[Rfam]
RNA sequence: ACAACAUUCGGACCGUCGGUCUACCGAGCAAGAUCACCCACUCGGUGGAGGAUCUUCUCUUUGACGC
Numbered sequence: 001a002c003a004a005c006a007u008u009c010g011g012a013c014c015g016u017c018g019g020u021c022u023a024c025c026g027a028g029c030a031a032g033a034u035c036a037c038c039c040a041c042u043c044g045g046u047g048g049a050g051g052a053u054c055u056u057c058u059c060u061u062u063g064a065c066g067c
Base pairs, nucleotide, nucleotide: 005063006062010058011057012056015053016052017051020049021048022047023046024045025044026043027042028041
Record summary:
The record is a 67-nucleotide sequence from Bombyx mori, which matches "mir-2774 microRNA precursor family" in Rfam. Pairs were carried over by alignment from the consensus structure, which was predicted with RNAalifold. Its family is annotated with miRNA-mediated post-transcriptional gene silencing and RISC complex in the Gene Ontology. Lineage of the source: Eukaryota > Allotriocarida > Pterygota > Eumetabola > Bombyx.